[Rfam]
RNA sequence: AUAGAUCUUCAGGGCGGGGUGUAAUUCCCCACCGGUGGUAAAGCCCACGAGCCGCAAGGCAUGAUUCGGUGUAAUUCCGAAGCCGACAGUACAGUCUGGAUGAAAGAAGAUUAGC
Numbered sequence: 001a002u003a004g005a006u007c008u009u010c011a012g013g014g015c016g017g018g019g020u021g022u023a024a025u026u027c028c029c030c031a032c033c034g035g036u037g038g039u040a041a042a043g044c045c046c047a048c049g050a051g052c053c054g055c056a057a058g059g060c061a062u063g064a065u066u067c068g069g070u071g072u073a074a075u076u077c078c079g080a081a082g083c084c085g086a087c088a089g090u091a092c093a094g095u096c097u098g099g100a101u102g103a104a105a106g107a108a109g110a111u112u113a114g115c
Base pairs, nucleotide, nucleotide: 004112005111006110007109008108009107010106017029018028019027031095032094033085034084035048036047037046038045043083044082053059065081066080067079068078069077087098088097089096